[Rfam]
Nucleotides: 356
Base pairs, nucleotide, nucleotide: 001356002355003354004353011349012348013347016312017311018310019309020308021307022306031079032078033077034076035075046063047062048061049060050059051058088338089337090336091335092334093254094253095252096251143156145154146153147152164177165176166175167174168173188247189246190245191244192243193242194241208232209231210230313326314325315324316323317322
Number, partner (000 for none) and nucleotide at each position: 001356u002355g003354g004353a005000a006000c007000a008000g009000u010000g011349g012348u013347g014000a015000u016312u017311c018310c019309u020308a021307c022306g023000a024000u025000u026000a027000a028000g029000a030000a031079a032078c033077c034076u035075g036000u037000u038000u039000g040000c041000a042000a043000a044000a045000g046063g047062g048061c049060c050059u051058g052000c053000c054000c055000a056000c057000g058051c059050g060049g061048g062047u063046c064000a065000u066000c067000u068000u069000a070000u071000u072000u073000a074000u075035c076034a077033g078032g079031u080000g081000g082000g083000a084000a085000a086000u087000u088338c089337g090336g091335u092334g093254g094253a095252a096251c097000a098000c099000a100000g101000u102000g103000g104000a105000g106000c107000c108000u109000u110000g111000c112000c113000u114000u115000c116000c117000g118000g119000g120000c121000c122000a123000u124000u125000g126000u127000c128000u129000c130000u131000g132000g133000c134000a135000g136000u137000g138000g139000c140000c141000c142000c143156u144000g145154c146153u147152c148000g149000u150000g151000a152147g153146a154145g155000a156143a157000g158000a159000a160000a161000c162000u163000u164177g165176c166175u167174g168173g169000g170000g171000a172000a173168c174167c175166a176165g177164u178000c179000u180000u181000u182000a183000c184000c185000g186000a187000c188247c189246g190245u191244u192243g193242c194241u195000a196000u197000c198000a199000g200000a201000a202000a203000u204000u205000g206000a207000a208232c209231g210230g211000g212000g213000c214000c215000c216000g217000g218000u219000c220000c221000c222000g223000c224000c225000g226000g227000g228000c229000c230210u231209c232208g233000a234000u235000g236000g237000g238000a239000a240000c241194g242193g243192c244191a245190a246189c247188g248000g249000u250000u251096g252095u253094u254093c255000c256000g257000u258000u259000u260000g261000a262000c263000u264000u265000g266000u267000c268000g269000c270000c271000c272000g273000c274000c275000a276000c277000g278000g279000c280000g281000c282000g283000c284000u285000g286000c287000a288000a289000g290000g291000u292000c293000u294000g295000u296000u297000g298000a299000g300000u301000g302000c303000a304000a305000u306022c307021g308020u309019a310018g311017g312016a313326c314325g315324c316323c317322a318000u319000u320000c321000g322317u323316g324315g325314c326313g327000a328000a329000c330000c331000c332000g333000a334092u335091a336090c337089c338088g339000a340000u341000u342000a343000c344000u345000g346000c347013u348012g349011c350000u351000g352000c353004u354003c355002c356001a

Overview: The record is a 356-nucleotide RNA sequence from Saccharomyces pastorianus, which matches "Nuclear RNase P" in Rfam. Ribonuclease P (RNase P) is a ubiquitous endoribonuclease, found in archaea, bacteria and eukarya as well as chloroplasts and mitochondria. Its best characterised activity is the generation of mature 5'-ends of tRNAs by cleaving the 5'-leader elements of precursor-tRNAs. Cellular RNase Ps are ribonucleoproteins. Rfam links the family to the GO terms ribonuclease P complex, tRNA processing and ribonuclease P activity. It is one of the family's seed sequences.